[Rfam]
RNA: Alphaproteobacterial ar14
Organism: Phyllobacterium endophyticum
RNA sequence: AACAACCGUCGGGGCAUUCUCCUCCCCCAGCCCGGACGGUGCAAAGACCGACACUCCUCCCAGCCGGUCUUACAAGUAGCACCCACCGCUCCUCCCGCGGUGGGUGUUGUUU
Numbered sequence: 001a002a003c004a005a006c007c008g009u010c011g012g013g014g015c016a017u018u019c020u021c022c023u024c025c026c027c028c029a030g031c032c033c034g035g036a037c038g039g040u041g042c043a044a045a046g047a048c049c050g051a052c053a054c055u056c057c058u059c060c061c062a063g064c065c066g067g068u069c070u071u072a073c074a075a076g077u078a079g080c081a082c083c084c085a086c087c088g089c090u091c092c093u094c095c096c097g098c099g100g101u102g103g104g105u106g107u108u109g110u111u112u
Stems, first nucleotide, its partner, number of pairs: 007038003012033004044071007052063001079107011